Rfam assigns this 67-nucleotide sequence from Cnephaeus nilssonii to the family "mir-9256 microRNA precursor family". Its family is annotated with RISC complex and miRNA-mediated post-transcriptional gene silencing in the Gene Ontology.
RNA sequence: GUAUACACUGAGUGGCCAGAUUAUUAUGCUCUCUGAACGCAUAAUAAUCUAGCCACUCAGUGCAUGU
Numbered sequence: 001g002u003a004u005a006c007a008c009u010g011a012g013u014g015g016c017c018a019g020a021u022u023a024u025u026a027u028g029c030u031c032u033c034u035g036a037a038c039g040c041a042u043a044a045u046a047a048u049c050u051a052g053c054c055a056c057u058c059a060g061u062g063c064a065u066g067u
Stems, first nucleotide, its partner, number of pairs: 004064001006062011019049010